Glycine riboswitch aptamer: a 102-nucleotide sequence from Phytoactinopolyspora alkaliphila. About the family: This family represents the bacterial glycine riboswitch.
RNA sequence: UGACUCCGGCUGGGAGAGUCCUCGUCGACAGCGACGUCGCGGGGCGCCGAAGGGGCAACAUUCCCCGUCAACCUCUCAGGCAUCAGGGACCAGCCGGGACAG
Numbered sequence: 001u002g003a004c005u006c007c008g009g010c011u012g013g014g015a016g017a018g019u020c021c022u023c024g025u026c027g028a029c030a031g032c033g034a035c036g037u038c039g040c041g042g043g044g045c046g047c048c049g050a051a052g053g054g055g056c057a058a059c060a061u062u063c064c065c066c067g068u069c070a071a072c073c074u075c076u077c078a079g080g081c082a083u084c085a086g087g088g089a090c091c092a093g094c095c096g097g098g099a100c101a102g
Stems, first nucleotide, its partner, number of pairs: 006097008020044006046081003049077002053075003058068002